[Rfam]
RNA sequence: GCGAUGAGCUGAUUUGUGUAAGACGAAGGUAAAGCAACACAUGUGCUGUGAACACAUGAUCCUUCGCCACAAAUAAUUUCGUAAUGAGCACCUGUGCCGGAAGCAUAGGUG
Dot-bracket structure: .............(((((.....((((((..........((.(((.......))).))..)))))).)))))................(((((((((.....)))))))))
Rfam assigns this 111-nucleotide sequence from Bacillus sp. J14TS2 to the family "BsrF". Rfam classes the family as a small RNA. It scores 51 bits against the family's covariance model. The base pairs follow the family's consensus structure, which was predicted with WAR.